[Rfam]
RNA: ZMP/ZTP riboswitch aptamer (pfl RNA motif)
RNA sequence: GUCGGGUCGCGCGACUGGCGAUAUCGGAUCAAGCACCAUCGGGGAGCGCGGCCGAUCCGUCUCGCCGCGCGCCUGGGCACUCCCU
Numbered sequence: 001g002u003c004g005g006g007u008c009g010c011g012c013g014a015c016u017g018g019c020g021a022u023a024u025c026g027g028a029u030c031a032a033g034c035a036c037c038a039u040c041g042g043g044g045a046g047c048g049c050g051g052c053c054g055a056u057c058c059g060u061c062u063c064g065c066c067g068c069g070c071g072c073c074u075g076g077g078c079a080c081u082c083c084c085u
Stems, first nucleotide, its partner, number of pairs: 005053008015043002017073004028039002064078003